A member of the RNA family "Lysine riboswitch aptamer" from Caloramator sp. E03, 164 nucleotides long. The source organism's lineage runs through Bacteria, Bacillota, Clostridia, Eubacteriales and Caloramator. It scores 100 bits against the family's covariance model. Rfam links the family to the GO term lysine biosynthetic process. The family's consensus secondary structure is taken from published work. From the family's description: Riboswitches are metabolite binding domains within certain messenger RNAs that serve as precision sensors for their corresponding targets.
RNA sequence: ACCUCAAGUAGAGGUGCUGCAAUUAUGAGUAACCUGUGGAGCUGGCUGCAAAGAAGCAGGAGAAAGGAAUUGUGGCCGAAGGGGAUAGGUGCCAAACUAUCUAACCUGGCAUUAUGUAGAAUAUGCAUAAUGCUGUCACCUUUUGGUGGAGAGCUACAGGGGUU
Numbered sequence: 001a002c003c004u005c006a007a008g009u010a011g012a013g014g015u016g017c018u019g020c021a022a023u024u025a026u027g028a029g030u031a032a033c034c035u036g037u038g039g040a041g042c043u044g045g046c047u048g049c050a051a052a053g054a055a056g057c058a059g060g061a062g063a064a065a066g067g068a069a070u071u072g073u074g075g076c077c078g079a080a081g082g083g084g085a086u087a088g089g090u091g092c093c094a095a096a097c098u099a100u101c102u103a104a105c106c107u108g109g110c111a112u113u114a115u116g117u118a119g120a121a122u123a124u125g126c127a128u129a130a131u132g133c134u135g136u137c138a139c140c141u142u143u144u145g146g147u148g149g150a151g152a153g154c155u156a157c158a159g160g161g162g163u164u
Stems, first nucleotide, its partner, number of pairs: 008157004016076009033060005080107003083102006108134011136149005